The family of this 68-nucleotide sequence from Effusibacillus dendaii is "Bacillaceae-1 RNA". NCBI's taxonomy places the organism under Bacteria, Bacillati, Bacillota, Bacilli, Effusibacillus. The base pairs follow the family's consensus structure, which is taken from published work.

RNA sequence: GAAAGAGGAAGCUCGACCAGGAACUGUGACAUCCUGUCACAACAUCGAGCGACUUGCAUCCCUGCGAG
Numbered sequence: 001g002a003a004a005g006a007g008g009a010a011g012c013u014c015g016a017c018c019a020g021g022a023a024c025u026g027u028g029a030c031a032u033c034c035u036g037u038c039a040c041a042a043c044a045u046c047g048a049g050c051g052a053c054u055u056g057c058a059u060c061c062c063u064g065c066g067a068g
Stems, first nucleotide, its partner, number of pairs: 011050006026040005053068005
Dot-bracket structure: ..........((((((.........(((((.....)))))....))))))..(((((......)))))